[Rfam]
RNA sequence: AAAUAAAAGGAGCAAUAACCUCUUUCUUGUUCUAUCAAGAAGGCGUUAUUGUUCC
Numbered sequence: 001a002a003a004u005a006a007a008a009g010g011a012g013c014a015a016u017a018a019c020c021u022c023u024u025u026c027u028u029g030u031u032c033u034a035u036c037a038a039g040a041a042g043g044c045g046u047u048a049u050u051g052u053u054c055c
Base pairs, nucleotide, nucleotide: 009055010054011053012052013051014050015049016048017047022043024041025040026039027038028037029036

Shown here is a 55-nucleotide sequence, a member of the family "Plastid-psbA-4 3UTR RNA". Plastid psbA-4 is a non-coding RNA (ncRNA) present in plastids. It was identified in inverted repeat sequences in the 3 prime untranslate region (3UTR) of photosystem II quinone-binding protein (psbA). It is one of the family's seed sequences. The literature on the family includes a 2023 paper in Plant Commun by Richter et al., "Retrograde signaling in plants: A critical review focusing on the GUN pathway and beyond". Its Rfam clan is "Plastid-psbA 3UTR RNA clan". The family's RNA type in Rfam is cis-regulatory element.